[Rfam]
RNA sequence: UUGAAAAGAGAAUAAUGAACUCAUAUAAUUCUGGUAAUAUGGUCCAGAAGUUUCUACCAGACAACCGUAAAUUGUCUGACUAUGAGUGAAAGCGCACCUAGG
Numbered sequence: 001u002u003g004a005a006a007a008g009a010g011a012a013u014a015a016u017g018a019a020c021u022c023a024u025a026u027a028a029u030u031c032u033g034g035u036a037a038u039a040u041g042g043u044c045c046a047g048a049a050g051u052u053u054c055u056a057c058c059a060g061a062c063a064a065c066c067g068u069a070a071a072u073u074g075u076c077u078g079a080c081u082a083u084g085a086g087u088g089a090a091a092g093c094g095c096a097c098c099u100a101g102g
Stems, first nucleotide, its partner, number of pairs: 019087007029049006058078007
RNA: Purine riboswitch aptamer
Organism: Caminicella sporogenes